[Rfam]
The family of this 337-nucleotide RNA from Flagellimonas maritima is "Bacterial RNase P class A".
Rfam classes the family as a ribozyme.
The base pairs follow the family's consensus structure, which is taken from published work.
The source organism's lineage runs through Bacteria, Pseudomonadati, Flavobacteriia, Flavobacteriaceae and Flagellimonas.
RNA sequence: CCGGCAGGCUACCUUAUCGCCCCUGAUUAUUAUCGGGGGAGGAAAGUCCGGACACCAAAGUGCAGCAUAGCGGGUAACGCCCGUCCGCCAGUAGGCGAGGACCAGUGCAACAGAAAGCAAGUACAGUUAGGCUGUAGUGAAAUCAGGUAAACUCUAUGCGGUGAAACGUCAUGUAAACCAAUGUUUAAGGGCUGCACGCCCAAAUUGGAGGGUAGGCGGUUGGAACUUUUGGGUAACUAAAAGUCUAGAUAAAUGAUAAGGAUGUUCUACUUUUUCCUGGAAGAGAUUCUAGAUUAAGUCUGAAUAGACAGAAUCCGGCUUAUGGCCUGCUUUUUUA
Numbered sequence: 001c002c003g004g005c006a007g008g009c010u011a012c013c014u015u016a017u018c019g020c021c022c023c024u025g026a027u028u029a030u031u032a033u034c035g036g037g038g039g040a041g042g043a044a045a046g047u048c049c050g051g052a053c054a055c056c057a058a059a060g061u062g063c064a065g066c067a068u069a070g071c072g073g074g075u076a077a078c079g080c081c082c083g084u085c086c087g088c089c090a091g092u093a094g095g096c097g098a099g100g101a102c103c104a105g106u107g108c109a110a111c112a113g114a115a116a117g118c119a120a121g122u123a124c125a126g127u128u129a130g131g132c133u134g135u136a137g138u139g140a141a142a143u144c145a146g147g148u149a150a151a152c153u154c155u156a157u158g159c160g161g162u163g164a165a166a167c168g169u170c171a172u173g174u175a176a177a178c179c180a181a182u183g184u185u186u187a188a189g190g191g192c193u194g195c196a197c198g199c200c201c202a203a204a205u206u207g208g209a210g211g212g213u214a215g216g217c218g219g220u221u222g223g224a225a226c227u228u229u230u231g232g233g234u235a236a237c238u239a240a241a242a243g244u245c246u247a248g249a250u251a252a253a254u255g256a257u258a259a260g261g262a263u264g265u266u267c268u269a270c271u272u273u274u275u276c277c278u279g280g281a282a283g284a285g286a287u288u289c290u291a292g293a294u295u296a297a298g299u300c301u302g303a304a305u306a307g308a309c310a311g312a313a314u315c316c317g318g319c320u321u322a323u324g325g326c327c328u329g330c331u332u333u334u335u336u337a
Base pairs, nucleotide, nucleotide: 003331004330005329006328007327008326009325010324011323012261013260014259015258016257017256018255020039021038022037023036024035025034026033027032044321045320046319048318049317050316051315052314053163054162055161056160060197061196062195063194065159066158067157068156069155070084071083072082073081074080085099086097087096088095089094100154101153105152106151107148108147122136123135124134125133126132127131167218168217169216170215178208179207180206181205182204189201190200191199192198225244226243227242228241229240230239231238232237